Rfam assigns this 76-nucleotide sequence from Artemisia annua to the family "Small nucleolar RNA SNORD18". Its family is annotated with RNA processing and nucleolus in the Gene Ontology. The match comes from Rfam's covariance-model search (42 bits). For this family Rfam cites "Two different snoRNAs are encoded in introns of amphibian and human L1 ribosomal protein genes" (Prislei et al., Nucleic Acids Res, 1993). By type it is a C/D-box small nucleolar RNA. Clan: SNORD18 clan.

RNA sequence: GGGAGAUGAUGAAGAAUAUAUUGGUCCGUGUUUCUGAAUAAACCUUGACGAUCUACUUUUAACCAUUUCUGAUCCC
Numbered sequence: 001g002g003g004a005g006a007u008g009a010u011g012a013a014g015a016a017u018a019u020a021u022u023g024g025u026c027c028g029u030g031u032u033u034c035u036g037a038a039u040a041a042a043c044c045u046u047g048a049c050g051a052u053c054u055a056c057u058u059u060u061a062a063c064c065a066u067u068u069c070u071g072a073u074c075c076c
Stems, first nucleotide, its partner, number of pairs: 001076004